[Rfam]
This 82-nucleotide RNA sequence from Sorghum bicolor belongs to the Rfam family "Small nucleolar RNA Z112". Clan: SNORD49 clan. The match comes from Rfam's covariance-model search (45 bits). A reference for the family is Liang et al. (2002), "A novel gene organization: intronic snoRNA gene clusters from Oryza sativa", Nucleic Acids Res. Rfam links the family to the GO terms nucleolus and RNA processing. Pairs were carried over by alignment from the consensus structure, which was predicted with PFOLD.
RNA sequence: UUGGGUAUGGUCUAUCCUUCGACCAUAACCUUUGUGGUUUGGUCUAGAUGGAGCCCCAUCUGUAGUUGUUGAAUUCAGCUGU
Numbered sequence: 001u002u003g004g005g006u007a008u009g010g011u012c013u014a015u016c017c018u019u020c021g022a023c024c025a026u027a028a029c030c031u032u033u034g035u036g037g038u039u040u041g042g043u044c045u046a047g048a049u050g051g052a053g054c055c056c057c058a059u060c061u062g063u064a065g066u067u068g069u070u071g072a073a074u075u076c077a078g079c080u081g082u
Stems, first nucleotide, its partner, number of pairs: 001065003005061001007059003011052006021044005027039004